[Rfam]
RNA sequence: GGAGACGUGGCCGAGUGGUCGAAGGCACACCCCUGCUAAGGGUGCAGACGGGAAACCGUCUCGAGGGUUCGAAUCCCUUCGUCUCCG
Numbered sequence: 001g002g003a004g005a006c007g008u009g010g011c012c013g014a015g016u017g018g019u020c021g022a023a024g025g026c027a028c029a030c031c032c033c034u035g036c037u038a039a040g041g042g043u044g045c046a047g048a049c050g051g052g053a054a055a056c057c058g059u060c061u062c063g064a065g066g067g068u069u070c071g072a073a074u075c076c077c078u079u080c081g082u083c084u085c086c087g
Base pairs, nucleotide, nucleotide: 001086002085003084004083005082006081007080010026011025012024028044029043030042031041032040063079064078065077066076067075

Background: tRNA: an 87-nucleotide RNA from Aliigemmobacter aestuarii. The family's consensus secondary structure is taken from published work. Taxonomically the source falls in Aliigemmobacter (Bacteria, Pseudomonadota, Alphaproteobacteria, Paracoccaceae). Rfam classes the family as a transfer RNA. A reference for the family is Hou (1993), "The tertiary structure of tRNA and the development of the genetic code", Trends Biochem Sci.